Rfam assigns this 134-nucleotide sequence from Hibiscus trionum to the family "mir-172 microRNA precursor family". Rfam links the family to the GO terms miRNA-mediated post-transcriptional gene silencing and RISC complex. For this family Rfam cites "Computational Identification of Plant MicroRNAs and Their Targets, Including a Stress-Induced miRNA" (Jones-Rhoades and Bartel, Mol Cell, 2004). Rfam 15.1 lists 2,076 matches to the family in 219 species.
RNA sequence: UUUCUUGCCGCUGCAGCAUCAUCAAGAUUCUCAUAUAUAUAUUCAAAGGGCUGGUGCAAAAGGAGGAUCUUCACCACUGUUAAAUUGCCCUAGAAUUAUUUUGUGAAUCUUGAUGAUGCUCCAUCCGCAAACAA
Numbered sequence: 001u002u003u004c005u006u007g008c009c010g011c012u013g014c015a016g017c018a019u020c021a022u023c024a025a026g027a028u029u030c031u032c033a034u035a036u037a038u039a040u041a042u043u044c045a046a047a048g049g050g051c052u053g054g055u056g057c058a059a060a061a062g063g064a065g066g067a068u069c070u071u072c073a074c075c076a077c078u079g080u081u082a083a084a085u086u087g088c089c090c091u092a093g094a095a096u097u098a099u100u101u102u103g104u105g106a107a108u109c110u111u112g113a114u115g116a117u118g119c120u121c122c123a124u125c126c127g128c129a130a131a132c133a134a
Stems, first nucleotide, its partner, number of pairs: 010125001012123002015120016032103002